[Rfam]
Source information: This 54-nucleotide RNA sequence from Coregonus sp. 'balchen' belongs to the Rfam family "UnaL2 LINE 3' element". From the family's description: The eel long interspersed element (LINE) UnaL2 and its partner short interspersed element (SINE) share a conserved 3' tail containing a stem-loop that is critical for their retrotransposition. By type it is a cis-regulatory element. The match comes from Rfam's covariance-model search (60 bits). The family's consensus secondary structure is taken from published work. The literature on the family includes a 2004 paper in RNA by Baba et al., "Solution structure of an RNA stem-loop derived from the 3' conserved region of eel LINE UnaL2".
Nucleotides: 054
Stems, first nucleotide, its partner, number of pairs: 013043001014041003020036006
Number, partner (000 for none) and nucleotide at each position: 001000g002000g003000u004000u005000g006000u007000g008000g009000g010000u011000a012000a013043u014041g015040u016039a017000a018000g019000u020036u021035g022034c023033u024032c025031u026000g027000g028000a029000u030000a031025a032024g033023a034022g035021c036020g037000u038000c039016u040015g041014c042000u043013a044000a045000a046000u047000g048000a049000c050000a051000u052000a053000a054000a